Shown here is a 104-nucleotide RNA from Staphylococcus simulans, a member of the family "azaaromatic riboswitch aptamer (yjdF RNA)". Pairs were carried over by alignment from the consensus structure, which is taken from published work. NCBI's taxonomy places the organism under Bacteria, Bacillati, Bacilli, Staphylococcaceae, Staphylococcus.
[Rfam]
RNA sequence: ACUAUGGAAUGUAAAAACACAAUUGGGUUGGUAGUCCCAAUGCUAAAUAUAAAUUUUUGUUAGUAACCUUCCUUCUCAGGUCGUCCAUCAUUUCAUGAAAAAAC
Number, nucleotide and partner (000 for none) at each position: 001a000002c000003u000004a096005u095006g094007g093008a092009a091010u090011g089012u000013a000014a000015a000016a000017a000018c000019a000020c000021a000022a041023u040024u039025g038026g037027g036028u000029u000030g000031g000032u000033a000034g000035u000036c027037c026038c025039a024040a023041u022042g060043c059044u000045a057046a056047a055048u000049a000050u000051a000052a000053a000054u000055u047056u046057u045058u000059g043060u042061u000062a000063g000064u000065a000066a000067c000068c000069u000070u000071c080072c079073u078074u000075c000076u000077c000078a073079g072080g071081u000082c000083g000084u000085c000086c000087a000088u000089c011090a010091u009092u008093u007094c006095a005096u004097g000098a000099a000100a000101a000102a000103a000104c000